[Rfam]
Rfam assigns this 133-nucleotide RNA from Zingiber officinale to the family "Small nucleolar RNA snoR111".
Rfam classes the family as an H/ACA-box small nucleolar RNA.
RNA sequence: UCGGAAGAGGGAACGCUCUUCUCCCUGGGCGAUUCUCUUUUGCAAGAGCAGCGCGGGGGCAAAAACGACGAGUCGAGAUAUCGUUUCUGCCGCCACUCCUCCCGUUGGCGGUACGAUUGUUGCUCGACCACAU
Numbered sequence: 001u002c003g004g005a006a007g008a009g010g011g012a013a014c015g016c017u018c019u020u021c022u023c024c025c026u027g028g029g030c031g032a033u034u035c036u037c038u039u040u041u042g043c044a045a046g047a048g049c050a051g052c053g054c055g056g057g058g059g060c061a062a063a064a065a066c067g068a069c070g071a072g073u074c075g076a077g078a079u080a081u082c083g084u085u086u087c088u089g090c091c092g093c094c095a096c097u098c099c100u101c102c103c104g105u106u107g108g109c110g111g112u113a114c115g116a117u118u119g120u121u122g123c124u125c126g127a128c129c130a131c132a133u
Stems, first nucleotide, its partner, number of pairs: 004043001006041002009037005072128001074126004080117004089112007098104001
A search with the family's covariance model found it, with a score of 62 bits.